[Rfam]
RNA sequence: UCGGCCCCGGUUCACGUGACGCAACUCCGUGUCCCGACCCGGCGCC
Number, nucleotide and partner (000 for none) at each position: 001u000002c000003g046004g045005c044006c000007c042008c041009g040010g039011u000012u000013c000014a000015c036016g035017u000018g033019a032020c031021g030022c029023a000024a000025c000026u000027c000028c000029g022030u021031g020032u019033c018034c000035c016036g015037a000038c000039c010040c009041g008042g007043c000044g005045c004046c003